[Rfam]
RNA: RcsR1 sRNA
Organism: Rhizobium sp. Root1212
RNA sequence: UCCUUUCGAUCUGGUGGUGGGCUCGCUGAGGCGGCCUUGACCAGUCAUGCGUGAUUGAAACACAAGCCGCCCGAAGUCCUCGAGGCGGCUUUUCG
Numbered sequence: 001u002c003c004u005u006u007c008g009a010u011c012u013g014g015u016g017g018u019g020g021g022c023u024c025g026c027u028g029a030g031g032c033g034g035c036c037u038u039g040a041c042c043a044g045u046c047a048u049g050c051g052u053g054a055u056u057g058a059a060a061c062a063c064a065a066g067c068c069g070c071c072c073g074a075a076g077u078c079c080u081c082g083a084g085g086c087g088g089c090u091u092u093u094c095g
Stems, first nucleotide, its partner, number of pairs: 011044005017038001019037004024033003048059001050057002064091008072082003